Shown here is a 73-nucleotide RNA sequence from Crocodylus porosus, a member of the family "Mammalian CPEB3 ribozyme". The base pairs follow the family's consensus structure, which is taken from published work.

[Rfam]
RNA sequence: ACGGGUUUGAGGCUAUGGCAGAUGUGCUCACAGUGCGGCCCUGUCAGAUUCUGCUAAAUGUGUGAGUUCUGCU
Numbered sequence: 001a002c003g004g005g006u007u008u009g010a011g012g013c014u015a016u017g018g019c020a021g022a023u024g025u026g027c028u029c030a031c032a033g034u035g036c037g038g039c040c041c042u043g044u045c046a047g048a049u050u051c052u053g054c055u056a057a058a059u060g061u062g063u064g065a066g067u068u069c070u071g072c073u
Base pairs, nucleotide, nucleotide: 009041011040012039013038014037017073018072019071020070021069022068024036025035026034045062046061048059049058050057